The family of this 73-nucleotide RNA sequence from Lachnospiraceae bacterium 28-4 is "tRNA". The family's RNA type in Rfam is transfer RNA. The family's consensus secondary structure is taken from published work. Rfam describes the family as follows. Transfer RNA (tRNA) molecules are approximately 80 nucleotides in length.
RNA sequence: GCUGCUAUAGCACAGUCGGUAGUGCGCAACAUUGGUAGUGUUGAGGUCACCAGUUCGAUUCUGGUUAGCAGCU
Numbered sequence: 001g002c003u004g005c006u007a008u009a010g011c012a013c014a015g016u017c018g019g020u021a022g023u024g025c026g027c028a029a030c031a032u033u034g035g036u037a038g039u040g041u042u043g044a045g046g047u048c049a050c051c052a053g054u055u056c057g058a059u060u061c062u063g064g065u066u067a068g069c070a071g072c073u
Stems, first nucleotide, its partner, number of pairs: 001072007010025004027043005049065005